TD-2 RNA: a 94-nucleotide RNA from Treponema vincentii. By type it is a small RNA. Clan: TD (Treponema denticola) motifs. NCBI's taxonomy places the organism under Bacteria, Pseudomonadati, Spirochaetia, Treponemataceae, Treponema vincentii. A reference for the family is Weinberg et al. (2007), "Identification of 22 candidate structured RNAs in bacteria using the CMfinder comparative genomics pipeline", Nucleic Acids Res.
[Rfam]
RNA sequence: ACGGACAAGGAUGUCCGUGGUUAUAAGCAGUAGCGAGUUUGCAACGCAAACUCGUCGUUGAGUAGUGUACAUGGAUGUACACUACUCAACAGGC
Numbered sequence: 001a002c003g004g005a006c007a008a009g010g011a012u013g014u015c016c017g018u019g020g021u022u023a024u025a026a027g028c029a030g031u032a033g034c035g036a037g038u039u040u041g042c043a044a045c046g047c048a049a050a051c052u053c054g055u056c057g058u059u060g061a062g063u064a065g066u067g068u069a070c071a072u073g074g075a076u077g078u079a080c081a082c083u084a085c086u087c088a089a090c091a092g093g094c
Stems, first nucleotide, its partner, number of pairs: 001018006034054009057090014